A member of the RNA family "DUF805 RNA" from Chloroflexi bacterium AL-W, 68 nucleotides long. NCBI's taxonomy places the organism under Bacteria, Bacillati, Chloroflexota. It is annotated as a cis-regulatory element. The base pairs follow the family's consensus structure, which is taken from published work. Clan: DUF805 clan. It scores 71 bits against the family's covariance model.
[Rfam]
RNA sequence: UGCAUGUGGAGUCCAGUCACCACAAAUAAAACGGGGCGCUUCCGAAAAGCCUUAUGAGUAGGAUUUAC
Number, nucleotide and partner (000 for none) at each position: 001u000002g000003c000004a000005u000006g023007u022008g021009g020010a000011g000012u000013c000014c000015a000016g000017u000018c000019a000020c009021c008022a007023c006024a000025a000026a000027u000028a000029a000030a000031a000032c000033g000034g000035g051036g050037c049038g000039c000040u000041u000042c062043c061044g000045a000046a000047a000048a000049g037050c036051c035052u000053u000054a000055u000056g000057a000058g000059u000060a000061g043062g042063a000064u000065u000066u000067a000068c000